RNA sequence: UUUAUUUAACCGGGGUGUCCUCUUUUAUGGGGGCUGAGAAUACACCCGUAGAACCUGAUCUGGAUCAUGCCAGCGAAGGGAGAGGAAAAAAUGACGUU
Numbered sequence: 001u002u003u004a005u006u007u008a009a010c011c012g013g014g015g016u017g018u019c020c021u022c023u024u025u026u027a028u029g030g031g032g033g034c035u036g037a038g039a040a041u042a043c044a045c046c047c048g049u050a051g052a053a054c055c056u057g058a059u060c061u062g063g064a065u066c067a068u069g070c071c072a073g074c075g076a077a078g079g080g081a082g083a084g085g086a087a088a089a090a091a092u093g094a095c096g097u098u
Stems, first nucleotide, its partner, number of pairs: 006086002010082001011048004016042001017034005054079003060073004